L31-Coriobacteria ribosomal protein leader: a 32-nucleotide RNA sequence from Suricata suricatta. Its Rfam clan is "Ribosomal Protein L31 Leader clan". NCBI's taxonomy places the organism under Eukaryota, Gnathostomata, Teleostomi, Mammalia, Suricata.

RNA sequence: CUCCUGGCCGGAAGCCAGGAGGCCCGUAGGAG
Numbered sequence: 001c002u003c004c005u006g007g008c009c010g011g012a013a014g015c016c017a018g019g020a021g022g023c024c025c026g027u028a029g030g031a032g
Stems, first nucleotide, its partner, number of pairs: 001021008